[Rfam]
RNA sequence: GGGACAGGUCGGGCAAUCGCGGUGCCGUACGCGGCAUCGAGGAAGGUCCGGACUCCAUAGAGCAGGAUAGCGGCUAACGGCCGCCCGGCGAGCAGCGGCCAUGGCCGCCGCGGGCCGAGGAACAGGGCCACAGAGACGAGUCUGCGGCGCGGGCAUGCCCAUGGCGUGCACCGACACGGCCACUUCCGUGUCGCGCGACCCGGCAACGGGCCGCGGCGCUGCAGGGUGAAACGCGGCAACCUCUAUCCGGAGCAACAUCAAAUAGGCAUGCGCGGGCCUUGCGCCCAGAGAGCGGCUCGCUCCAGCAUGCGGGUAGAUGGCUAGAGCGCGGCAGCAAUGCCGAGCCCAGAGGAAUGAUUGCCCGCCGGGUUCGCCCGGCGUACAGAAUCCGGCCUACAGACCUGUCCCGUUU
Numbered sequence: 001g002g003g004a005c006a007g008g009u010c011g012g013g014c015a016a017u018c019g020c021g022g023u024g025c026c027g028u029a030c031g032c033g034g035c036a037u038c039g040a041g042g043a044a045g046g047u048c049c050g051g052a053c054u055c056c057a058u059a060g061a062g063c064a065g066g067a068u069a070g071c072g073g074c075u076a077a078c079g080g081c082c083g084c085c086c087g088g089c090g091a092g093c094a095g096c097g098g099c100c101a102u103g104g105c106c107g108c109c110g111c112g113g114g115c116c117g118a119g120g121a122a123c124a125g126g127g128c129c130a131c132a133g134a135g136a137c138g139a140g141u142c143u144g145c146g147g148c149g150c151g152g153g154c155a156u157g158c159c160c161a162u163g164g165c166g167u168g169c170a171c172c173g174a175c176a177c178g179g180c181c182a183c184u185u186c187c188g189u190g191u192c193g194c195g196c197g198a199c200c201c202g203g204c205a206a207c208g209g210g211c212c213g214c215g216g217c218g219c220u221g222c223a224g225g226g227u228g229a230a231a232c233g234c235g236g237c238a239a240c241c242u243c244u245a246u247c248c249g250g251a252g253c254a255a256c257a258u259c260a261a262a263u264a265g266g267c268a269u270g271c272g273c274g275g276g277c278c279u280u281g282c283g284c285c286c287a288g289a290g291a292g293c294g295g296c297u298c299g300c301u302c303c304a305g306c307a308u309g310c311g312g313g314u315a316g317a318u319g320g321c322u323a324g325a326g327c328g329c330g331g332c333a334g335c336a337a338u339g340c341c342g343a344g345c346c347c348a349g350a351g352g353a354a355u356g357a358u359u360g361c362c363c364g365c366c367g368g369g370u371u372c373g374c375c376c377g378g379c380g381u382a383c384a385g386a387a388u389c390c391g392g393c394c395u396a397c398a399g400a401c402c403u404g405u406c407c408c409g410u411u412u
Base pairs, nucleotide, nucleotide: 001408002407003406004405005404006403007402008401009400010399011397012362013361014360015359016358017357018356020039021038022037023036024035025034026033027032044395045394046393048392049391050390051389052388053252054251055250056249060298061297062296063295065248066247067246068245069244070084071083072082073081074080085119086117087116088115089114120243121242125241126240127237128236129235142225143224144222145221146220147219148218149217150216152214256319257318258317259316266310267309268308269307270306271305290302291301292300293299326345327344329342330341331340332339333338